[Rfam]
RNA sequence: AAAGUAAACAAGGCAAUCGCCGGUGGUGUACCGCAAGGUCCCACGGGAGGAAAGUCCGAGCUCCAUAGGGCAGGGUGCCGGCUAACGGCCGGUGGGGGCGACCCUAAGGCUAGUGCCACAGAAAUGUAGACCGCCGAUGGAGGCUGUGCCUCACAGGCAAGGAUGCAACGGUGCGGUAAGAGCGCACCAGCAGCAUGGAGACAUGCUGGCUAGGUAAACCCCACCCGGAGCAAGACCUGAUAGGAGAUCCGCACAUUUGUGCAGCUGUUGCCCGCAGCGAUCUCGGGUAGGUCGCUUGAGCCGUGUAGCAAUACACGGCCUAGACAGAUGAUUGCCACUCCAAGGGGUGGAAGACGAACAAGCCGUCGCUUGUACCACUCGGAGUACAGAACUCGGCUUAUUGUUUGCUUUCCUG
Numbered sequence: 001a002a003a004g005u006a007a008a009c010a011a012g013g014c015a016a017u018c019g020c021c022g023g024u025g026g027u028g029u030a031c032c033g034c035a036a037g038g039u040c041c042c043a044c045g046g047g048a049g050g051a052a053a054g055u056c057c058g059a060g061c062u063c064c065a066u067a068g069g070g071c072a073g074g075g076u077g078c079c080g081g082c083u084a085a086c087g088g089c090c091g092g093u094g095g096g097g098g099c100g101a102c103c104c105u106a107a108g109g110c111u112a113g114u115g116c117c118a119c120a121g122a123a124a125u126g127u128a129g130a131c132c133g134c135c136g137a138u139g140g141a142g143g144c145u146g147u148g149c150c151u152c153a154c155a156g157g158c159a160a161g162g163a164u165g166c167a168a169c170g171g172u173g174c175g176g177u178a179a180g181a182g183c184g185c186a187c188c189a190g191c192a193g194c195a196u197g198g199a200g201a202c203a204u205g206c207u208g209g210c211u212a213g214g215u216a217a218a219c220c221c222c223a224c225c226c227g228g229a230g231c232a233a234g235a236c237c238u239g240a241u242a243g244g245a246g247a248u249c250c251g252c253a254c255a256u257u258u259g260u261g262c263a264g265c266u267g268u269u270g271c272c273c274g275c276a277g278c279g280a281u282c283u284c285g286g287g288u289a290g291g292u293c294g295c296u297u298g299a300g301c302c303g304u305g306u307a308g309c310a311a312u313a314c315a316c317g318g319c320c321u322a323g324a325c326a327g328a329u330g331a332u333u334g335c336c337a338c339u340c341c342a343a344g345g346g347g348u349g350g351a352a353g354a355c356g357a358a359c360a361a362g363c364c365g366u367c368g369c370u371u372g373u374a375c376c377a378c379u380c381g382g383a384g385u386a387c388a389g390a391a392c393u394c395g396g397c398u399u400a401u402u403g404u405u406u407g408c409u410u411u412c413c414u415g
Base pairs, nucleotide, nucleotide: 001411002410003409004408005407006406007405008404009403010402011401012336013335014334015333016332017331018330020047021046023044024043025042026041028039052399053398054397056396057395058394059393060392061230062229063228064227068273069272070271071270073226074225075224076223077222078092079091080090081089082088093107094105095104096103097102108221109220113219114218115215116214117213131162132161133158134157135156138153139152140151170188171187172186173185174184175183190210191208192207193206194205195204196203197202234293235292236291237290244284245283246282247281248280249279264278265277266276267275268274300319301318302317303316304315305314306313307312